The family of this 101-nucleotide RNA sequence is "c-di-GMP-II-GAG riboswitch aptamer".
[Rfam]
RNA sequence: UCAGCGUCAGGAGGCAGGAAGCGGGGGUUCCACCAGCGGACCGGUCUAACUCGGUCGCCAACCGAUGCGCUGGGCCAAUGGCGAGACCGACCUGACCGUGC
Numbered sequence: 001u002c003a004g005c006g007u008c009a010g011g012a013g014g015c016a017g018g019a020a021g022c023g024g025g026g027g028u029u030c031c032a033c034c035a036g037c038g039g040a041c042c043g044g045u046c047u048a049a050c051u052c053g054g055u056c057g058c059c060a061a062c063c064g065a066u067g068c069g070c071u072g073g074g075c076c077a078a079u080g081g082c083g084a085g086a087c088c089g090a091c092c093u094g095a096c097c098g099u100g101c
Base pairs, nucleotide, nucleotide: 002100003099006096007095008094009093010092011091013076014075015074021070022069023068027066028065029064053088054087055084056083057082058081059080

A reference for the family is Weinberg et al. (2017), "Bioinformatic analysis of riboswitch structures uncovers variant classes with altered ligand specificity", Proc Natl Acad Sci U S A.
The family's consensus secondary structure is taken from published work.